[Rfam]
RNA sequence: ACGACCUUACUUGAACAGGAUCUGUUCUAUAGGCUCGUGCCUCUGUGUCCUUGAGACCUAAGGAGACAGGAACCAAAGUCUGGUGGAUGAACCAUGCCCGUGUGAUCAGAGCGUGAUUAACGGCUCUCCUGGGUCCCGUUUGGAUCCAGUCGAACUGUAGAGGAUCGUUCUCAGCCGGAUUACUUCGGCUGGGAUGGUCACACGGCUGUCUGACAGACU
Numbered sequence: 001a002c003g004a005c006c007u008u009a010c011u012u013g014a015a016c017a018g019g020a021u022c023u024g025u026u027c028u029a030u031a032g033g034c035u036c037g038u039g040c041c042u043c044u045g046u047g048u049c050c051u052u053g054a055g056a057c058c059u060a061a062g063g064a065g066a067c068a069g070g071a072a073c074c075a076a077a078g079u080c081u082g083g084u085g086g087a088u089g090a091a092c093c094a095u096g097c098c099c100g101u102g103u104g105a106u107c108a109g110a111g112c113g114u115g116a117u118u119a120a121c122g123g124c125u126c127u128c129c130u131g132g133g134u135c136c137c138g139u140u141u142g143g144a145u146c147c148a149g150u151c152g153a154a155c156u157g158u159a160g161a162g163g164a165u166c167g168u169u170c171u172c173a174g175c176c177g178g179a180u181u182a183c184u185u186c187g188g189c190u191g192g193g194a195u196g197g198u199c200a201c202a203c204g205g206c207u208g209u210c211u212g213a214c215a216g217a218c219u
Stems, first nucleotide, its partner, number of pairs: 001038002003035001005033003013027006043069004048064006078218005098205011110169004120158004125153002129149008171192009
The record is a 219-nucleotide RNA from Corymbia citriodora, which matches "Plant small nucleolar RNA U3" in Rfam. The source organism's lineage runs through Eukaryota, Streptophytina, Spermatophyta, Mesangiospermae and Corymbia citriodora. The family's consensus secondary structure is taken from published work. It scores 198 bits against the family's covariance model. The family's RNA type in Rfam is C/D-box small nucleolar RNA. The family has 24 seed sequences and 3,759 matches in Rfam 15.1. On this family, see Speckmann et al., Mol Cell Biol 1999: "Nuclear retention elements of U3 small nucleolar RNA". Rfam describes the family as follows. Small nucleolar RNAs (snoRNAs) are involved in the processing and modification of rRNA in the nucleolus.